[Rfam]
RNA: MIR2617 microRNA precursor family
Organism: Medicago truncatula
RNA sequence: UUGAAAUGUAGCAUGCUCGUUUGGUGUUAAACUCUGAUGUUAUAUUUAUUAUUAAUUGUAUUUUGGGUAACGGGGUGUUACAAUUGG
Numbered sequence: 001u002u003g004a005a006a007u008g009u010a011g012c013a014u015g016c017u018c019g020u021u022u023g024g025u026g027u028u029a030a031a032c033u034c035u036g037a038u039g040u041u042a043u044a045u046u047u048a049u050u051a052u053u054a055a056u057u058g059u060a061u062u063u064u065g066g067g068u069a070a071c072g073g074g075g076u077g078u079u080a081c082a083a084u085u086g087g
Stems, first nucleotide, its partner, number of pairs: 002087001004085002007082008016074006